[Rfam]
RNA sequence: CCGGCGAAUGCUGGCGGAACUACAGACGGUCGCGGGUUCGAAACCCGCCCGCCCCCUGGGGCGGUAGCUCAGCGGUAGAGCACCUGUUUCGCCGAGACCUUGUCGCCGGCGC
Numbered sequence: 001c002c003g004g005c006g007a008a009u010g011c012u013g014g015c016g017g018a019a020c021u022a023c024a025g026a027c028g029g030u031c032g033c034g035g036g037u038u039c040g041a042a043a044c045c046c047g048c049c050c051g052c053c054c055c056c057u058g059g060g061g062c063g064g065u066a067g068c069u070c071a072g073c074g075g076u077a078g079a080g081c082a083c084c085u086g087u088u089u090c091g092c093c094g095a096g097a098c099c100u101u102g103u104c105g106c107c108g109g110c111g112c
Stems, first nucleotide, its partner, number of pairs: 002108006013093007025083001032048006039075001049064006067081004